Source information
The record is a 68-nucleotide sequence from Otolemur garnettii, which matches "Small nucleolar RNA SNORD77" in Rfam. Pairs were carried over by alignment from the consensus structure, which was predicted with RNAalifold. The family is grouped with related families in Rfam's "SNORD77 clan". U77 belongs to the C/D family of snoRNAs. On this family, see Tycowski et al., Curr Biol 2004: "Guide RNAs with 5' caps and novel box C/D snoRNA-like domains for modification of snRNAs in metazoa".
RNA sequence: AUACUACGAUGGUUGCAUAGUUGAGCAGAUCAAAUCAUAAAAAGAUUUGCUAUUUGUCUGAUGUAUUU
Numbered sequence: 001a002u003a004c005u006a007c008g009a010u011g012g013u014u015g016c017a018u019a020g021u022u023g024a025g026c027a028g029a030u031c032a033a034a035u036c037a038u039a040a041a042a043a044g045a046u047u048u049g050c051u052a053u054u055u056g057u058c059u060g061a062u063g064u065a066u067u068u
Stems, first nucleotide, its partner, number of pairs: 001066004006038001008036003013028004043055004